[Rfam]
RNA sequence: GCCCGGCCUGCUCCCUGAGACCUCAAUUGUGACGACUUUUCGGAGUCACAAGAUGAGCUCUCGGGGCCCAGGCCGAC
Numbered sequence: 001g002c003c004c005g006g007c008c009u010g011c012u013c014c015c016u017g018a019g020a021c022c023u024c025a026a027u028u029g030u031g032a033c034g035a036c037u038u039u040u041c042g043g044a045g046u047c048a049c050a051a052g053a054u055g056a057g058c059u060c061u062c063g064g065g066g067c068c069c070a071g072g073c074c075g076a077c
Stems, first nucleotide, its partner, number of pairs: 013065003017062004022057004027052002030050002
Record summary:
lin-4 microRNA precursor family: a 77-nucleotide RNA sequence from Mesorhabditis spiculigera. Rfam links the family to the GO terms RISC complex and miRNA-mediated post-transcriptional gene silencing. On this family, see Rougvie, Nat Rev Genet 2001: "Control of developmental timing in animals".